[Rfam]
RNA sequence: UGGCACCCAACGUGGGGCUGGAUACAGAGUAUCCACUGAGGGAAGAAGACGUCCCCAAAGGAACGCGUUCUACAACAGUUUUCACUCUGGACUCGCCGCGGGAACCUGCCUCAGCUACAACCAGAAGUAAGUACAGACGUCUGAUUAUUGGACAAAAAAUAAACAGGCAUGAACUUUAUGUUAAGCAGUUACGAGAAGCCCUGAAGACGCGAGGAGUAAAGGUUAAAAUAGAGGAUCUAUUGAGAUUCUUUGAAUUCAUUAAGGAAACCUGUCCUU
Numbered sequence: 001u002g003g004c005a006c007c008c009a010a011c012g013u014g015g016g017g018c019u020g021g022a023u024a025c026a027g028a029g030u031a032u033c034c035a036c037u038g039a040g041g042g043a044a045g046a047a048g049a050c051g052u053c054c055c056c057a058a059a060g061g062a063a064c065g066c067g068u069u070c071u072a073c074a075a076c077a078g079u080u081u082u083c084a085c086u087c088u089g090g091a092c093u094c095g096c097c098g099c100g101g102g103a104a105c106c107u108g109c110c111u112c113a114g115c116u117a118c119a120a121c122c123a124g125a126a127g128u129a130a131g132u133a134c135a136g137a138c139g140u141c142u143g144a145u146u147a148u149u150g151g152a153c154a155a156a157a158a159a160u161a162a163a164c165a166g167g168c169a170u171g172a173a174c175u176u177u178a179u180g181u182u183a184a185g186c187a188g189u190u191a192c193g194a195g196a197a198g199c200c201c202u203g204a205a206g207a208c209g210c211g212a213g214g215a216g217u218a219a220a221g222g223u224u225a226a227a228a229u230a231g232a233g234g235a236u237c238u239a240u241u242g243a244g245a246u247u248c249u250u251u252g253a254a255u256u257c258a259u260u261a262a263g264g265a266a267a268c269c270u271g272u273c274c275u276u
Base pairs, nucleotide, nucleotide: 006029008027012025013024014023037046084128085127086126087124088123093119098112100110101109136153140151141150143148160203161202164198210252211251212250213249214248215247216246217245220238221237222236223235224234261276262275263274264273265272
Rfam assigns this 276-nucleotide RNA sequence from Nannospalax galili to the family "Mason-Pfizer monkey virus packaging signal". Rfam classes the family as a cis-regulatory element. The source organism's lineage runs through Eukaryota, Vertebrata, Tetrapoda, Myomorpha and Nannospalax. Gene Ontology term of the family: viral genome packaging. The match comes from Rfam's covariance-model search (138 bits).